[Rfam]
RNA sequence: GGGUACGGGGUAGCAGUGAGGCUCGGCUGAUACCCCUUGCUAAUGGAUGUGAUCCUGAUGUUGUGAAGCGAGCCUUUG
Numbered sequence: 001g002g003g004u005a006c007g008g009g010g011u012a013g014c015a016g017u018g019a020g021g022c023u024c025g026g027c028u029g030a031u032a033c034c035c036c037u038u039g040c041u042a043a044u045g046g047a048u049g050u051g052a053u054c055c056u057g058a059u060g061u062u063g064u065g066a067a068g069c070g071a072g073c074c075u076u077u078g
Stems, first nucleotide, its partner, number of pairs: 008035005014029003020074005038063002041060002046055001

The record is a 78-nucleotide sequence from Gammacoronavirus galli, which matches "Coronavirus frameshifting stimulation element" in Rfam. It scores 55 bits against the family's covariance model. The organism belongs to Avian coronavirus, within Viruses. Rfam classes the family as a frameshift element. Pairs were carried over by alignment from the consensus structure, which is taken from published work. The literature on the family includes a 2005 paper in Virology by Baranov et al., "Programmed ribosomal frameshifting in decoding the SARS-CoV genome". From the family's description: This family represents a conserved stem-loop found in Coronaviruses which can promote ribosomal frameshifting. This family interacts with a downstream region to form a pseudoknot structure, the region varies according to the virus but pseudoknot formation is known to stimulate frameshifting. In the classical situation a sequence 32nt downstream of the stem is complementary to part of the loop. In other Coronaviruses however, there is another stem loop structure around 150nt downstream that can interact with this family to form kissing stem loops and stimulate frameshifting.